[Rfam]
The record is an 89-nucleotide sequence from Georgfuchsia toluolica, which matches "Burkholderia RNA 7 (anti-hemB)" in Rfam. From the family's description: This RNA motif was identified by computational search in b-proteobacteria Burkholderia.
RNA sequence: UCUCCCGCUAACCUCCCUGAGCGGGCGCCUUGAUCAAGAGUUAAGGCCUUGCCCCUGGUUUCCUCCCUUUUAACCAGGGGCUUGUUUUU
Dot-bracket structure: ...((((((..........)))))).(((((((.......)))))))....((((((((.............)))))))).........
Numbered sequence: 001u002c003u004c005c006c007g008c009u010a011a012c013c014u015c016c017c018u019g020a021g022c023g024g025g026c027g028c029c030u031u032g033a034u035c036a037a038g039a040g041u042u043a044a045g046g047c048c049u050u051g052c053c054c055c056u057g058g059u060u061u062c063c064u065c066c067c068u069u070u071u072a073a074c075c076a077g078g079g080g081c082u083u084g085u086u087u088u089u
Stems, first nucleotide, its partner, number of pairs: 004025006027047007052080008
Lineage of the source: Bacteria > Pseudomonadati > Pseudomonadota > Betaproteobacteria > Georgfuchsia. Rfam 15.1 lists 479 matches to the family in 458 species. Rfam links the family to the GO terms bacterial biofilm matrix and protein binding.